[Rfam]
Source information: Rfam assigns this 108-nucleotide RNA sequence from Vulpes vulpes to the family "mir-8834 microRNA precursor family". Pairs were carried over by alignment from the consensus structure, which was predicted with RNAalifold. Rfam links the family to the GO terms RISC complex and miRNA-mediated post-transcriptional gene silencing.
RNA sequence: GGGAGGAACAACCCAACUGGUGGCGGCCAGCUCCCCAGUGCUGGAGUCAGCUCCAGCAGUAACUCCCGCAGCUCCCCGUCCGCAGGGGCCUGGAUGCUCUGGGGGUGG
Numbered sequence: 001g002g003g004a005g006g007a008a009c010a011a012c013c014c015a016a017c018u019g020g021u022g023g024c025g026g027c028c029a030g031c032u033c034c035c036c037a038g039u040g041c042u043g044g045a046g047u048c049a050g051c052u053c054c055a056g057c058a059g060u061a062a063c064u065c066c067c068g069c070a071g072c073u074c075c076c077c078g079u080c081c082g083c084a085g086g087g088g089c090c091u092g093g094a095u096g097c098u099c100u101g102g103g104g105g106u107g108g
Stems, first nucleotide, its partner, number of pairs: 002100004007095001009092002012088003019080005025075002029073004034068001037064001040060004